[Rfam]
RNA sequence: GAAAAAUAAGGAUAUUCUGACUGUUUCCUAUUAUUACAGUGAAGACCUCAGAUCCAACUCUGAUUUCACUCUAGUU
Numbered sequence: 001g002a003a004a005a006a007u008a009a010g011g012a013u014a015u016u017c018u019g020a021c022u023g024u025u026u027c028c029u030a031u032u033a034u035u036a037c038a039g040u041g042a043a044g045a046c047c048u049c050a051g052a053u054c055c056a057a058c059u060c061u062g063a064u065u066u067c068a069c070u071c072u073a074g075u076u
Stems, first nucleotide, its partner, number of pairs: 001067004
A member of the RNA family "Small nucleolar RNA SNORD19" from Podilymbus podiceps, 76 nucleotides long. Lineage of the source: Eukaryota > Saurischia > Podicipediformes > Podicipedidae > Podilymbus. The pairing is the family consensus, mapped onto this sequence. The family's RNA type in Rfam is C/D-box small nucleolar RNA. Gene Ontology terms of the family: RNA processing and nucleolus. A search with the family's covariance model found it, with a score of 37 bits.